Small nucleolar RNA snoR97: a 108-nucleotide sequence from Miscanthus lutarioriparius.
RNA sequence: UAUACAUCUGUGGCAAGGACCUUCCGAAGCUCAUAAAAUAUGUUGCUGUCAUCACCUUUGUCUCUGCUUGUACAUCAGAGACCGGAGUUGAAAAACAGCACAACAUGU
Numbered sequence: 001u002a003u004a005c006a007u008c009u010g011u012g013g014c015a016a017g018g019a020c021c022u023u024c025c026g027a028a029g030c031u032c033a034u035a036a037a038a039u040a041u042g043u044u045g046c047u048g049u050c051a052u053c054a055c056c057u058u059u060g061u062c063u064c065u066g067c068u069u070g071u072a073c074a075u076c077a078g079a080g081a082c083c084g085g086a087g088u089u090g091a092a093a094a095a096c097a098g099c100a101c102a103a104c105a106u107g108u
Stems, first nucleotide, its partner, number of pairs: 041102002044100005054089001056087004061081004
For this family Rfam cites "Experimental RNomics: identification of 140 candidates for small non-messenger RNAs in the plant Arabidopsis thaliana" (Marker et al., Curr Biol, 2002). Taxonomically the source falls in Miscanthus (Eukaryota, Streptophyta, Poales, Saccharinae). Gene Ontology terms of the family: nucleolus and RNA processing. The family's consensus secondary structure was predicted with WAR. The family has 7 seed sequences and 862 matches in Rfam 15.1. A search with the family's covariance model found it, with a score of 46 bits.